[Rfam]
A member of the RNA family "mir-252 microRNA precursor family" from Clunio marinus, 76 nucleotides long. Pairs were carried over by alignment from the consensus structure, which was predicted with RNAalifold. Taxonomically the source falls in Clunio (Eukaryota, Insecta, Panorpida, Chironomidae). Rfam 15.1 lists 422 matches to the family in 306 species. For this family Rfam cites "Direct sequencing and expression analysis of a large number of miRNAs in Aedes aegypti and a multi-species survey of novel mosquito miRNAs" (Li et al., BMC Genomics, 2009).
RNA sequence: GUUCUUUCCUAAGUACUAGUGCCGCAGGAGAGAUUUAAACAUAAAACCCCUGCUGCCCAAGUGCUUAUCGAAGAGG
Numbered sequence: 001g002u003u004c005u006u007u008c009c010u011a012a013g014u015a016c017u018a019g020u021g022c023c024g025c026a027g028g029a030g031a032g033a034u035u036u037a038a039a040c041a042u043a044a045a046a047c048c049c050c051u052g053c054u055g056c057c058c059a060a061g062u063g064c065u066u067a068u069c070g071a072a073g074a075g076g
Base pairs, nucleotide, nucleotide: 002075003074004073005072006071007070010067011066012065013064014063015062016061017060019058024053025052026051027050028049030047